[Rfam]
RNA sequence: UUAAAUAAUUUGAAUACUUCAACUUGUAGACUUAAAGAUAUCAACUUGAAAACUUGAACUUGCAAACUUGAAGAAUUUGAAGACUUUAACU
Numbered sequence: 001u002u003a004a005a006u007a008a009u010u011u012g013a014a015u016a017c018u019u020c021a022a023c024u025u026g027u028a029g030a031c032u033u034a035a036a037g038a039u040a041u042c043a044a045c046u047u048g049a050a051a052a053c054u055u056g057a058a059c060u061u062g063c064a065a066a067c068u069u070g071a072a073g074a075a076u077u078u079g080a081a082g083a084c085u086u087u088a089a090c091u
Base pairs, nucleotide, nucleotide: 001089002088003087004086005085009081010080011079012078013077014076017073018072019071020070021069025064026063027062028061032058033057035055036054037053
RNA: MIR8024 microRNA precursor family
Organism: Solanum commersonii